[Rfam]
A member of the RNA family "Small nucleolar RNA U109" from Aquarana catesbeiana, 141 nucleotides long. Gene Ontology terms of the family: nucleolus and RNA processing. For this family Rfam cites "A novel experimental approach for systematic identification of box H/ACA snoRNAs from eukaryotes" (Gu et al., Nucleic Acids Res, 2005). Pairs were carried over by alignment from the consensus structure, which was predicted with WAR. A search with the family's covariance model found it, with a score of 67 bits. Lineage of the source: Eukaryota > Chordata > Craniata > Euteleostomi > Aquarana.

RNA sequence: AUGCAUGACAGAUAUUACUAUGGUGUACCUGUUGGUGGGGCAUCGGUAUAUCUAGGUCAUGCAAAAGGAAACUGAUACGGAGUCAUCAGGGCUGCCAGUUGUAAAGUACAGACUGAGCGGUAGUAUAUUACUCCUACAUUU
Numbered sequence: 001a002u003g004c005a006u007g008a009c010a011g012a013u014a015u016u017a018c019u020a021u022g023g024u025g026u027a028c029c030u031g032u033u034g035g036u037g038g039g040g041c042a043u044c045g046g047u048a049u050a051u052c053u054a055g056g057u058c059a060u061g062c063a064a065a066a067g068g069a070a071a072c073u074g075a076u077a078c079g080g081a082g083u084c085a086u087c088a089g090g091g092c093u094g095c096c097a098g099u100u101g102u103a104a105a106g107u108a109c110a111g112a113c114u115g116a117g118c119g120g121u122a123g124u125a126u127a128u129u130a131c132u133c134c135u136a137c138a139u140u141u
Base pairs, nucleotide, nucleotide: 003062004061005060006059007058008057022044023043024042025041026040028038029037079134080133081132082131091121092120095117096115097114098113099112100111